The record is a 98-nucleotide sequence from Propithecus coquereli, which matches "mir-544 microRNA precursor family" in Rfam. It scores 72 bits against the family's covariance model.
Nucleotides: 098
Stems, first nucleotide, its partner, number of pairs: 003091002009085003015080002018077003021073003025069005031063003
Number, partner (000 for none) and nucleotide at each position: 001000a002000u003091c004090a005000c006000c007000u008000g009085g010084g011083g012000a013000u014000c015080u016079u017000a018077u019076u020075a021073a022072a023071a024000u025069g026068c027067a028066g029065a030000a031063u032062c033061u034000g035000a036000u037000u038000c039000a040000g041000u042000g043000a044000g045000u046000u047000g048000g049000g050000g051000u052000u053000a054000g055000a056000a057000c058000c059000u060000a061033a062032g063031a064000u065029u066028c067027u068026g069025u070000g071023u072022u073021u074000c075020u076019a077018a078000c079016a080015a081000a082000u083011u084010c085009c086000c087000a088000a089000a090004u091003g092000a093000u094000g095000c096000u097000a098000a
The source organism's lineage runs through Eukaryota, Eumetazoa, Eutheria, Boreoeutheria and Propithecus.